[Rfam]
Shown here is a 288-nucleotide RNA from Halovulum marinum, a member of the family "5' ureB small RNA". Its family is annotated with negative regulation of gene expression in the Gene Ontology. Lineage of the source: Bacteria > Pseudomonadati > Alphaproteobacteria > Paracoccaceae > Halovulum. A reference for the family is Wen et al. (2013), "Helicobacter pylori 5'ureB-sRNA, a cis-encoded antisense small RNA, negatively regulates ureAB expression by transcription termination", J Bacteriol. The match comes from Rfam's covariance-model search (110 bits).
RNA sequence: GUCCUCGAUCUGCUGCGGGCAGAUGAAGUGGAUGUGCGAAUCGAAGCCGCCGGCGGUCAGGAUCCGGCCCUCGCCCGCGAUCACUUCCGUGCCCGGCCCGAUGAUGAUGUCGACGCCGGGCUGGGUGUCCGGGUUGCCCGCCUUGCCGAUCGCGGCGAUGCGGCCGUCCCUCAGGCCGACGUCGGCCUUGGUGAUGCCGGUCCAGUCGACGAUCAGCGCGUUGGUGAUCACGGUGUCGGCCGCGCCUUGCGCCCGGCUGGCCUGGCUCUGGCCCAUGCCGUCGCGGAU
Numbered sequence: 001g002u003c004c005u006c007g008a009u010c011u012g013c014u015g016c017g018g019g020c021a022g023a024u025g026a027a028g029u030g031g032a033u034g035u036g037c038g039a040a041u042c043g044a045a046g047c048c049g050c051c052g053g054c055g056g057u058c059a060g061g062a063u064c065c066g067g068c069c070c071u072c073g074c075c076c077g078c079g080a081u082c083a084c085u086u087c088c089g090u091g092c093c094c095g096g097c098c099c100g101a102u103g104a105u106g107a108u109g110u111c112g113a114c115g116c117c118g119g120g121c122u123g124g125g126u127g128u129c130c131g132g133g134u135u136g137c138c139c140g141c142c143u144u145g146c147c148g149a150u151c152g153c154g155g156c157g158a159u160g161c162g163g164c165c166g167u168c169c170c171u172c173a174g175g176c177c178g179a180c181g182u183c184g185g186c187c188u189u190g191g192u193g194a195u196g197c198c199g200g201u202c203c204a205g206u207c208g209a210c211g212a213u214c215a216g217c218g219c220g221u222u223g224g225u226g227a228u229c230a231c232g233g234u235g236u237c238g239g240c241c242g243c244g245c246c247u248u249g250c251g252c253c254c255g256g257c258u259g260g261c262c263u264g265g266c267u268c269u270g271g272c273c274c275a276u277g278c279c280g281u282c283g284c285g286g287a288u
Base pairs, nucleotide, nucleotide: 001288002287004285006283007282008281011157012156013155014154015153016152017075018074021071022070029052030051031050033049034048036047037046056068057067058066077146080143084140089137090136091134092133093132094131095129096128097127098124099123101122105118106116163272164271165270166269171265172264173263174262175261176259185219186218188216189215190214200207222256224254229249230248233245234244235243
Dot-bracket structure: ((.(.(((..((((((((..((......(((.((.((........)))))))...(((.......))).))..)).(..(...(....(((((((((((.(...((.........).)...)))..))).)))).))..)..)..).....)))))).....((((....((((((........((.(((.........(......)......))).))..(.(....((..(((.......)))..))....).)..).)))))...))))........))).).))